Rfam assigns this 103-nucleotide sequence to the family "Small nucleolar RNA snoR99".
The literature on the family includes a 2002 paper in Curr Biol by Marker et al., "Experimental RNomics: identification of 140 candidates for small non-messenger RNAs in the plant Arabidopsis thaliana".
The family's RNA type in Rfam is H/ACA-box small nucleolar RNA.
It is one of the family's seed sequences.
RNA sequence: GUGCUUAAUAGGAUUGAACAAAGUCCCUCAAAUCUUGAUCCAUCUGUCACUUUGUCAGCAGUCUUAAUUGGUUUCUUGCUGAUCAUUAUAUGAUGGGAAAUAA
Numbered sequence: 001g002u003g004c005u006u007a008a009u010a011g012g013a014u015u016g017a018a019c020a021a022a023g024u025c026c027c028u029c030a031a032a033u034c035u036u037g038a039u040c041c042a043u044c045u046g047u048c049a050c051u052u053u054g055u056c057a058g059c060a061g062u063c064u065u066a067a068u069u070g071g072u073u074u075c076u077u078g079c080u081g082a083u084c085a086u087u088a089u090a091u092g093a094u095g096g097g098a099a100a101u102a103a
Stems, first nucleotide, its partner, number of pairs: 039097006054083008